The family of this 45-nucleotide RNA sequence from Desulfonatronum sp. SC1 is "Acido-Lenti-1 RNA". A search with the family's covariance model found it, with a score of 46 bits. The organism belongs to Desulfonatronum, within Bacteria.
RNA sequence: CCCAGGGCGUUGCCCUGGGCUGUAAUAUUUCGCCCUUACAGGGCU
Numbered sequence: 001c002c003c004a005g006g007g008c009g010u011u012g013c014c015c016u017g018g019g020c021u022g023u024a025a026u027a028u029u030u031c032g033c034c035c036u037u038a039c040a041g042g043g044c045u
Stems, first nucleotide, its partner, number of pairs: 001019008032044005